mir-7558 microRNA precursor family: a 51-nucleotide RNA from Ictalurus punctatus.
[Rfam]
RNA sequence: GGCUGAGAUUGGGAGCACUCCCUUUAAGGGUGUGCUCCUGGUCUCGGCUCG
Numbered sequence: 001g002g003c004u005g006a007g008a009u010u011g012g013g014a015g016c017a018c019u020c021c022c023u024u025u026a027a028g029g030g031u032g033u034g035c036u037c038c039u040g041g042u043c044u045c046g047g048c049u050c051g
Stems, first nucleotide, its partner, number of pairs: 001049018020030004
Pairs were carried over by alignment from the consensus structure, which was predicted with RNAalifold.